[Rfam]
RNA sequence: CCUCCAGUUCUUGGCAUGCAUGUUGCUGUUUAGUGCUAUUGUGUGUAAUUUAUGGAGGAAUAUCAAAGCCAGUGCAAUGUCUUCGGUACCAGAGUGUUUUCCAUCCUCUGGUCCUAUCCUCAAUCACUGGUACAGAA
Numbered sequence: 001c002c003u004c005c006a007g008u009u010c011u012u013g014g015c016a017u018g019c020a021u022g023u024u025g026c027u028g029u030u031u032a033g034u035g036c037u038a039u040u041g042u043g044u045g046u047a048a049u050u051u052a053u054g055g056a057g058g059a060a061u062a063u064c065a066a067a068g069c070c071a072g073u074g075c076a077a078u079g080u081c082u083u084c085g086g087u088a089c090c091a092g093a094g095u096g097u098u099u100u101c102c103a104u105c106c107u108c109u110g111g112u113c114c115u116a117u118c119c120u121c122a123a124u125c126a127c128u129g130g131u132a133c134a135g136a137a
Stems, first nucleotide, its partner, number of pairs: 001058005015045006023038001025036002070129005089111006096105001
Dot-bracket structure: (((((.........((((((..(.((........)).).))))))........)))))...........(((((..............((((((.(........))))))).............)))))........
RNA: Small nucleolar RNA SNORA57